[Rfam]
Small nucleolar RNA SNORD116: a 90-nucleotide RNA from Carlito syrichta. A reference for the family is Cavaille et al. (2000), "Identification of brain-specific and imprinted small nucleolar RNA genes exhibiting an unusual genomic organization", Proc Natl Acad Sci U S A. The organism belongs to Carlito, within Eukaryota.
RNA sequence: GGAUCAAUGAUGACUUCCAUAUAUGCAUUCCUUGGAAAGGUAAACAAUAUGAGUGAAAACUAUACCAUCAUCCUCAUAAAACUGUGGUUU
Numbered sequence: 001g002g003a004u005c006a007a008u009g010a011u012g013a014c015u016u017c018c019a020u021a022u023a024u025g026c027a028u029u030c031c032u033u034g035g036a037a038a039g040g041u042a043a044a045c046a047a048u049a050u051g052a053g054u055g056a057a058a059a060c061u062a063u064a065c066c067a068u069c070a071u072c073c074u075c076a077u078a079a080a081a082c083u084g085u086g087g088u089u090u
Stems, first nucleotide, its partner, number of pairs: 001090005026055005032047003

Rfam classes the family as a C/D-box small nucleolar RNA.
Rfam 15.1 lists 3,260 matches to the family in 170 species.